[Rfam]
RNA sequence: GCUAUGAAUGGGCAAACCCAUUGAAAGGUGGGGACGCAAAGCCACGGGCCUACGGAUCUUCUCUAUGGCAGCCGGGUUGCCAAC
Numbered sequence: 001g002c003u004a005u006g007a008a009u010g011g012g013c014a015a016a017c018c019c020a021u022u023g024a025a026a027g028g029u030g031g032g033g034a035c036g037c038a039a040a041g042c043c044a045c046g047g048g049c050c051u052a053c054g055g056a057u058c059u060u061c062u063c064u065a066u067g068g069c070a071g072c073c074g075g076g077u078u079g080c081c082a083a084c
Stems, first nucleotide, its partner, number of pairs: 012037002017032006040078004045074003048069003055063002
Source information
The family of this 84-nucleotide sequence from Brevibacillus centrosporus is "c-di-GMP-I riboswitch aptamer". About the family: GEMM was predicted in a large-scale screen for bacterial structured RNA regulatory elements. Lineage of the source: Bacteria > Bacillati > Bacilli > Caryophanales > Brevibacillus. Rfam links the family to the GO term cyclic-di-GMP binding.